The record is an 87-nucleotide sequence from Macaca mulatta, which matches "mir-670 microRNA precursor family" in Rfam. The base pairs follow the family's consensus structure, which was predicted with RNAalifold. Rfam links the family to the GO terms cellular response to leukemia inhibitory factor, miRNA-mediated post-transcriptional gene silencing and RISC complex.
RNA sequence: GGUGGACCUGAUGUCCCUGAGUGUAUGUGGUGAACCUGAAUUUGCCUUGGGUUUCCUCAUAUUCAUUCAGGAGUGUCAGUUGCCCCU
Numbered sequence: 001g002g003u004g005g006a007c008c009u010g011a012u013g014u015c016c017c018u019g020a021g022u023g024u025a026u027g028u029g030g031u032g033a034a035c036c037u038g039a040a041u042u043u044g045c046c047u048u049g050g051g052u053u054u055c056c057u058c059a060u061a062u063u064c065a066u067u068c069a070g071g072a073g074u075g076u077c078a079g080u081u082g083c084c085c086c087u
Stems, first nucleotide, its partner, number of pairs: 001084005008079006015073001016071008025062005030056001032054008